Source information
Shown here is an 89-nucleotide RNA sequence from Noviherbaspirillum denitrificans, a member of the family "c-di-GMP-I riboswitch aptamer".
RNA sequence: GAACAGACAGGGCAAACCGGCUGAAAAGCCGGGACGCAAAGCUUCCGGCCUGACGGGGAGAAGUUUCCCAAGGUAGCGGAGCCGCCUCC
Numbered sequence: 001g002a003a004c005a006g007a008c009a010g011g012g013c014a015a016a017c018c019g020g021c022u023g024a025a026a027a028g029c030c031g032g033g034a035c036g037c038a039a040a041g042c043u044u045c046c047g048g049c050c051u052g053a054c055g056g057g058g059a060g061a062a063g064u065u066u067c068c069c070a071a072g073g074u075a076g077c078g079g080a081g082c083c084g085c086c087u088c089c
Stems, first nucleotide, its partner, number of pairs: 012037002017032006041082003045079003048074003055068004
Description:
It scores 70 bits against the family's covariance model. The base pairs follow the family's consensus structure, which is taken from published work. The source organism's lineage runs through Bacteria, Pseudomonadati, Burkholderiales, Oxalobacteraceae and Noviherbaspirillum.